[Rfam]
The family of this 525-nucleotide sequence from Vespula germanica is "Nuclear RNase P".

RNA sequence: GCCAGAGUCAAUCUAGCAGAAGAGACACACAAGCUAAGGUACGUUUGGUUACCAACGAGAAAUGUCUCGGGAAGGUCUGAGAUAAAGUCGUAUUCGAAGAAAUUUGUUUUCAUCUUCGAAUAGAUGCUCUAGAAGGGCAACCUUGUUAUACGGGGUCGAGGAAAACAGAAAUAUUUGACGACCGAGCUCUUCGUAACCCAGGACGUCACGUUGUCUUUUUUCCGCUUUCAAUUUAUCUUGUAAUUCUCUUUGUCACUAUCUAUCUCUUUCUGAGAUGAUCUUAACUUUACCGUCUACCUAUCAUCUUUUAUCCACGAUUCCUCGGAGAUUCCUCGGUAAAAAUCUCCCUUCUAUUCUCUGUUCGAAAGUGGAGAGGGAUACUGACAGAGGUCGAGCCGGUCAUGUCGAUGGAAAUUCCCGCGACUCGCGAUUUCAGCACAAUCUGCAAGCCGUUCCUCGUGUGCGUCUAAUCCGAGAGGCGCGGUGAGAAGGACGGAACUCAAUUCAGACUAAUCUGACUCUGGC
Dot-bracket structure: ((((...(((..[[.[[[[..(((((...........(((((.....).))))..........)))))........(((((....((((...................................(((((.....)))))((((((.....))))))((.((((............(((((..............................................................................................................................................................................................................................))))).......)))))).)))).................]]]].]]((((((...................................)))))).......))))).......)))...))))
Numbered sequence: 001g002c003c004a005g006a007g008u009c010a011a012u013c014u015a016g017c018a019g020a021a022g023a024g025a026c027a028c029a030c031a032a033g034c035u036a037a038g039g040u041a042c043g044u045u046u047g048g049u050u051a052c053c054a055a056c057g058a059g060a061a062a063u064g065u066c067u068c069g070g071g072a073a074g075g076u077c078u079g080a081g082a083u084a085a086a087g088u089c090g091u092a093u094u095c096g097a098a099g100a101a102a103u104u105u106g107u108u109u110u111c112a113u114c115u116u117c118g119a120a121u122a123g124a125u126g127c128u129c130u131a132g133a134a135g136g137g138c139a140a141c142c143u144u145g146u147u148a149u150a151c152g153g154g155g156u157c158g159a160g161g162a163a164a165a166c167a168g169a170a171a172u173a174u175u176u177g178a179c180g181a182c183c184g185a186g187c188u189c190u191u192c193g194u195a196a197c198c199c200a201g202g203a204c205g206u207c208a209c210g211u212u213g214u215c216u217u218u219u220u221u222c223c224g225c226u227u228u229c230a231a232u233u234u235a236u237c238u239u240g241u242a243a244u245u246c247u248c249u250u251u252g253u254c255a256c257u258a259u260c261u262a263u264c265u266c267u268u269u270c271u272g273a274g275a276u277g278a279u280c281u282u283a284a285c286u287u288u289a290c291c292g293u294c295u296a297c298c299u300a301u302c303a304u305c306u307u308u309u310a311u312c313c314a315c316g317a318u319u320c321c322u323c324g325g326a327g328a329u330u331c332c333u334c335g336g337u338a339a340a341a342a343u344c345u346c347c348c349u350u351c352u353a354u355u356c357u358c359u360g361u362u363c364g365a366a367a368g369u370g371g372a373g374a375g376g377g378a379u380a381c382u383g384a385c386a387g388a389g390g391u392c393g394a395g396c397c398g399g400u401c402a403u404g405u406c407g408a409u410g411g412a413a414a415u416u417c418c419c420g421c422g423a424c425u426c427g428c429g430a431u432u433u434c435a436g437c438a439c440a441a442u443c444u445g446c447a448a449g450c451c452g453u454u455c456c457u458c459g460u461g462u463g464c465g466u467c468u469a470a471u472c473c474g475a476g477a478g479g480c481g482c483g484g485u486g487a488g489a490a491g492g493a494c495g496g497a498a499c500u501c502a503a504u505u506c507a508g509a510c511u512a513a514u515c516u517g518a519c520u521c522u523g524g525c
Stems, first nucleotide, its partner, number of pairs: 001525004008518003013449002016446004022068005038053004042048001077508005086425004125139005140156006157420002160418004176407005450496006
A search with the family's covariance model found it, with a score of 103 bits. NCBI's taxonomy places the organism under Eukaryota, Metazoa, Ecdysozoa, Dicondylia, Vespula. The family's RNA type in Rfam is ribozyme. Rfam 15.1 lists 3,848 matches to the family in 1,862 species.